[Rfam]
RNA sequence: CCUUAUUGGCGUUUCUCUUCCUCCUCCCAGACGAAAUGCCAACCAAGAUUACAACGUUAUCCUCCUCCCAACGUUGUAUUUCCGAUCAAGCCCGCCAACCUCCUCCCUGGCGGGCUUUUUCG
Numbered sequence: 001c002c003u004u005a006u007u008g009g010c011g012u013u014u015c016u017c018u019u020c021c022u023c024c025u026c027c028c029a030g031a032c033g034a035a036a037u038g039c040c041a042a043c044c045a046a047g048a049u050u051a052c053a054a055c056g057u058u059a060u061c062c063u064c065c066u067c068c069c070a071a072c073g074u075u076g077u078a079u080u081u082c083c084g085a086u087c088a089a090g091c092c093c094g095c096c097a098a099c100c101u102c103c104u105c106c107c108u109g110g111c112g113g114g115c116u117u118u119u120u121c122g
Base pairs, nucleotide, nucleotide: 007041008040009039011037012036013035014034015033016031017030048080050078051077052076053075054074055073056072057071088117089116090115091114092113093112094111095110096109
Rfam assigns this 122-nucleotide RNA sequence from Nitratireductor aestuarii to the family "Alphaproteobacterial ar14". For this family Rfam cites "A conserved alpha-proteobacterial small RNA contributes to osmoadaptation and symbiotic efficiency of rhizobia on legume roots" (Robledo et al., Environ Microbiol, 2017). Smr14C2 was renamed NfeR1 (Nodule Formation Efficiency RNA) highly expressed in salt stress and during the symbiotic interaction on legume roots. The match comes from Rfam's covariance-model search (71 bits). Taxonomically the source falls in Nitratireductor (Bacteria, Pseudomonadati, Alphaproteobacteria, Phyllobacteriaceae).